Background
Shown here is a 78-nucleotide RNA sequence from Cricetulus griseus, a member of the family "mir-28 microRNA precursor family". The family has 34 seed sequences and 267 matches in Rfam 15.1. The organism belongs to Cricetulus, within Eukaryota. Pairs were carried over by alignment from the consensus structure, which was predicted with RNAalifold. The literature on the family includes a 2001 paper in Science by Lagos-Quintana et al., "Identification of novel genes coding for small expressed RNAs".
Nucleotides: 078
Base pairs, nucleotide, nucleotide: 001078002077003076005074006073007072008071009070011068012067013066014065015064016063017062018061019060020059021058022057023056024055025054026053028051029050030045031044032043033042034041
Number, partner (000 for none) and nucleotide at each position: 001078c002077c003076u004000a005074c006073c007072c008071u009070c010000a011068a012067g013066g014065a015064g016063c017062u018061c019060a020059c021058a022057g023056u024055c025054u026053a027000u028051u029050g030045a031044g032043u033042u034041g035000c036000c037000u038000u039000u040000c041034u042033g043032a044031u045030u046000c047000u048000c049000c050029c051028a052000c053026u054025a055024g056023a057022u058021u059020g060019u061018g062017a063016g064015c065014u066013c067012c068011u069000g070009g071008a072007g073006g074005g075000c076003a077002g078001g